This 345-nucleotide sequence from Aurantiacibacter marinus belongs to the Rfam family "Alphaproteobacteria transfer-messenger RNA".
Bacterial tmRNA, also known as 10Sa RNA or SsrA, is named for its dual tRNA and mRNA-like properties. Its role is to liberate the mRNA from a stalled ribosome. To accomplish this part of the tmRNA is used as a reading frame that ends in a translation stop signal.
Nucleotides: 345
Stems, first nucleotide, its partner, number of pairs: 039054005058196005069189007084175003088172003094110005111157007197213004202224003207220001312326004317343003321339001
Number, partner (000 for none) and nucleotide at each position: 001000a002000c003000a004000c005000u006000u007000c008000a009000c010000a011000u012000u013000a014000a015000g016000c017000g018000g019000g020000c021000a022000g023000g024000c025000c026000c027000u028000a029000u030000a031000u032000a033000g034000g035000u036000c037000c038000u039054g040053c041052c042051c043050g044000u045000u046000u047000u048000u049000u050043c051042g052041g053040g054039c055000u056000a057000u058196g059195g060194c061193g062192a063000u064000a065000a066000a067000a068000u069189g070188c071187g072186g073185u074184g075183u076000g077000c078000a079000c080000u081000a082000g083000g084175c085174a086173c087000a088172g089171c090170g091000g092000a093000c094110c095109c096108g097107g098106g099000g100000g101000c102000a103000g104000u105000a106098c107097c108096c109095g110094g111157c112156g113155g114154c115153u116152c117151c118000a119000c120000c121000a122000c123000a124000a125000a126000c127000a128000c129000u130000g131000g132000g133000a134000a135000a136000c137000c138000a139000g140000u141000g142000g143000u144000u145000u146000c147000u148000g149000a150000c151117g152116g153115g154114g155113c156112c157111g158000a159000a160000c161000u162000a163000g164000g165000a166000u167000c168000g169000a170090c171089g172088u173086g174085u175084g176000u177000u178000g179000a180000a181000a182000g183075g184074c185073a186072c187071u188070g189069u190000u191000u192062u193061c194060g195059c196058c197213c198212g199211g200210g201000c202224u203223g204222a205000g206000a207220u208000c209000c210200c211199c212198c213197g214000u215000u216000a217000a218000a219000c220207g221000c222204u223203c224202a225000c226000a227000a228000c229000a230000c231000a232000c233000a234000a235000g236000u237000g238000c239000c240000a241000a242000u243000g244000a245000u246000a247000a248000u249000g250000a251000a252000g253000c254000a255000c256000u257000c258000g259000c260000g261000a262000u263000u264000g265000c266000u267000g268000c269000g270000u271000a272000a273000u274000u275000u276000g277000a278000c279000g280000u281000c282000c283000u284000a285000a286000c287000g288000g289000a290000c291000u292000g293000a294000a295000u296000u297000u298000a299000c300000a301000a302000a303000g304000c305000u306000u307000a308000a309000g310000c311000g312326c313325g314324g315323u316000u317343g318342g319341a320000c321339c322000g323315a324314c325313c326312g327000g328000g329000c330000a331000a332000c333000a334000g335000a336000a337000c338000g339321g340000a341319u342318u343317c344000c345000g
By type it is a non-coding RNA gene.
Pairs were carried over by alignment from the consensus structure, which is taken from published work.